[Rfam]
RNA sequence: ACGAUGUGUGAAUGUAAGUCGCUUUGGAUAAAAGCGUCAGCUAAAUGACAUGUA
Numbered sequence: 001a002c003g004a005u006g007u008g009u010g011a012a013u014g015u016a017a018g019u020c021g022c023u024u025u026g027g028a029u030a031a032a033a034g035c036g037u038c039a040g041c042u043a044a045a046u047g048a049c050a051u052g053u054a
Stems, first nucleotide, its partner, number of pairs: 013043001014041002020036006
RNA: UnaL2 LINE 3' element
Organism: Liparis tanakae